The record is a 61-nucleotide RNA from Tetracentron sinense, which matches "Plastid-psbN 5UTR RNA" in Rfam. The literature on the family includes a 2023 paper in Plant Commun by Richter et al., "Retrograde signaling in plants: A critical review focusing on the GUN pathway and beyond". NCBI's taxonomy places the organism under Eukaryota, Viridiplantae, Embryophyta, Mesangiospermae, Tetracentron.

RNA sequence: UGUGACACCCAUCAAAGGAGUAGUACCCCAUCCAGGAGAUACUUUACCAUAUUCCGUAUUC
Numbered sequence: 001u002g003u004g005a006c007a008c009c010c011a012u013c014a015a016a017g018g019a020g021u022a023g024u025a026c027c028c029c030a031u032c033c034a035g036g037a038g039a040u041a042c043u044u045u046a047c048c049a050u051a052u053u054c055c056g057u058a059u060u061c
Stems, first nucleotide, its partner, number of pairs: 017045006024038001026036002
Plastid psbN is a non-coding RNA (ncRNA) recognised in plastids. It was reported as a conserved 11 stem-loop in the prime untranslated region (5UTR) of psbN genes.
It is annotated as a cis-regulatory element.
It scores 72 bits against the family's covariance model.